The record is a 99-nucleotide sequence from Protea cynaroides, which matches "Small nucleolar RNA Z43" in Rfam.
[Rfam]
RNA sequence: GGACGAUGACAACUUAUGUGAUUUGUCUCGUUCGUCUUAAUGGCUAAUAUGCCUUGCCGACUGAUCAUCCUGAUAUAUCACCACCCAUAUUCUGAGCCC
Numbered sequence: 001g002g003a004c005g006a007u008g009a010c011a012a013c014u015u016a017u018g019u020g021a022u023u024u025g026u027c028u029c030g031u032u033c034g035u036c037u038u039a040a041u042g043g044c045u046a047a048u049a050u051g052c053c054u055u056g057c058c059g060a061c062u063g064a065u066c067a068u069c070c071u072g073a074u075a076u077a078u079c080a081c082c083a084c085c086c087a088u089a090u091u092c093u094g095a096g097c098c099c
Stems, first nucleotide, its partner, number of pairs: 001099002004096001045059001047055001
Dot-bracket structure: ((.(........................................(.(.......)...)....................................).))

Its family is annotated with RNA processing and nucleolus in the Gene Ontology. The family's RNA type in Rfam is C/D-box small nucleolar RNA. A reference for the family is Chen et al. (2003), "The high diversity of snoRNAs in plants: identification and comparative study of 120 snoRNA genes from Oryza sativa", Nucleic Acids Res. Lineage of the source: Eukaryota > Embryophyta > Spermatophyta > Magnoliopsida > Protea.